Shown here is a 340-nucleotide RNA sequence from Sphingomonas gilva, a member of the family "Alphaproteobacteria transfer-messenger RNA".

RNA sequence: ACACUUUUCUUUCGGGAAUCGCGCCCUAUAUUGGCGGGCGUCGGGUUCGCCCGACUAUGGCGAUAAAGAGCGGUGUGUCAUAGACGCAGCGGACCCGGGGGCAGUACCCGGCGGCUCCACCAAAACCGGCCCAUCCGGCCGGUCCUGACGGGGCCGAACCAGGAUCGACGUGUGUUGAAAAGCACUGUUUUUCGCUCGGAAUGGGACCACCGCGACGGCCCAUACACAAGUGCCAACGAUAACGAAGCACUCGCGAUUGCGGCGUAACUGAAGGCCUAGCGGCCUGAAGUUACUCCAAAAUAGCGCGGUCGGACCGCACCGGGCAACAGAAGCGGAUUCC
Numbered sequence: 001a002c003a004c005u006u007u008u009c010u011u012u013c014g015g016g017a018a019u020c021g022c023g024c025c026c027u028a029u030a031u032u033g034g035c036g037g038g039c040g041u042c043g044g045g046u047u048c049g050c051c052c053g054a055c056u057a058u059g060g061c062g063a064u065a066a067a068g069a070g071c072g073g074u075g076u077g078u079c080a081u082a083g084a085c086g087c088a089g090c091g092g093a094c095c096c097g098g099g100g101g102c103a104g105u106a107c108c109c110g111g112c113g114g115c116u117c118c119a120c121c122a123a124a125a126c127c128g129g130c131c132c133a134u135c136c137g138g139c140c141g142g143u144c145c146u147g148a149c150g151g152g153g154c155c156g157a158a159c160c161a162g163g164a165u166c167g168a169c170g171u172g173u174g175u176u177g178a179a180a181a182g183c184a185c186u187g188u189u190u191u192u193c194g195c196u197c198g199g200a201a202u203g204g205g206a207c208c209a210c211c212g213c214g215a216c217g218g219c220c221c222a223u224a225c226a227c228a229a230g231u232g233c234c235a236a237c238g239a240u241a242a243c244g245a246a247g248c249a250c251u252c253g254c255g256a257u258u259g260c261g262g263c264g265u266a267a268c269u270g271a272a273g274g275c276c277u278a279g280c281g282g283c284c285u286g287a288a289g290u291u292a293c294u295c296c297a298a299a300a301u302a303g304c305g306c307g308g309u310c311g312g313a314c315c316g317c318a319c320c321g322g323g324c325a326a327c328a329g330a331a332g333c334g335g336a337u338u339c340c
Base pairs, nucleotide, nucleotide: 040055041054042053043052044051059196060195061194062193063192070188071187072186073185074184075183076182085174086173087172089171090170091169095111096110097109098108099107112156113155114154115153116152117151118150197212198211199210202222203221204220207218208217306321307320308319309318312338313337315335

Rfam links the family to the GO term RNA catabolic process. A search with the family's covariance model found it, with a score of 212 bits. The family is grouped with related families in Rfam's "tRNA clan". Bacterial tmRNA, also known as 10Sa RNA or SsrA, is named for its dual tRNA and mRNA-like properties.